Source information: U7 small nuclear RNA: a 62-nucleotide sequence from Microcebus murinus. For this family Rfam cites "3' end processing of mouse histone pre-mRNA: evidence for additional base-pairing between U7 snRNA and pre-mRNA" (Spycher et al., Nucleic Acids Res, 1994).
RNA sequence: CGGUGUUCCAGCUCUUUUAGAAUUUGUCUAGCAGGUUUUCCGGUCCUCACCGGGAGACUCCC
Numbered sequence: 001c002g003g004u005g006u007u008c009c010a011g012c013u014c015u016u017u018u019a020g021a022a023u024u025u026g027u028c029u030a031g032c033a034g035g036u037u038u039u040c041c042g043g044u045c046c047u048c049a050c051c052g053g054g055a056g057a058c059u060c061c062c
Stems, first nucleotide, its partner, number of pairs: 034059011
The family's consensus secondary structure was predicted with PFOLD.
The match comes from Rfam's covariance-model search (62 bits).
Animal histone pre-mRNAs are spliced by a different mechanism than nuclear pre-mRNAs and self-splicing introns. This processing involves the U7 snRNP, which contains only one RNA species: U7. The 5' end of U7 RNA is thought to base-pair to a conserved spacer element downstream of the cleavage site in histone pre-mRNA. This family contains a number of annotated U7 pseudogenes.